[Rfam]
RNA: Phenylalanine leader peptide
RNA sequence: CAAAAUCCUAACUGCGUUUUUUACUUUCUUUUUUAUGCCCCCCACCCUCGGAGGCGGAAUUUCGGUGUAAAAACGAAAGUGAAAAUUCCAAAGCCUCCCACACGGGAGGCUUUUUUAAU
Numbered sequence: 001c002a003a004a005a006u007c008c009u010a011a012c013u014g015c016g017u018u019u020u021u022u023a024c025u026u027u028c029u030u031u032u033u034u035a036u037g038c039c040c041c042c043c044a045c046c047c048u049c050g051g052a053g054g055c056g057g058a059a060u061u062u063c064g065g066u067g068u069a070a071a072a073a074c075g076a077a078a079g080u081g082a083a084a085a086u087u088c089c090a091a092a093g094c095c096u097c098c099c100a101c102a103c104g105g106g107a108g109g110c111u112u113u114u115u116u117a118a119u
Base pairs, nucleotide, nucleotide: 018085019084020083021082022081023080024079025078026077027076028075030073031072033070034069035068036067039054040053042051055064056063057062090113091112092111093110094109095108096107097106098105099104